[Rfam]
RNA sequence: UUAGACAAAGGCAAACCUAGCGAAAGCUAGGGACGCAAAGUUUCGGGUCUUACACCAUUGGGUGAUGAUUGCUGAGCUACCAUUU
Numbered sequence: 001u002u003a004g005a006c007a008a009a010g011g012c013a014a015a016c017c018u019a020g021c022g023a024a025a026g027c028u029a030g031g032g033a034c035g036c037a038a039a040g041u042u043u044c045g046g047g048u049c050u051u052a053c054a055c056c057a058u059u060g061g062g063u064g065a066u067g068a069u070u071g072c073u074g075a076g077c078u079a080c081c082a083u084u085u
Stems, first nucleotide, its partner, number of pairs: 004081001011036002016031006034071001039078004044074003047069003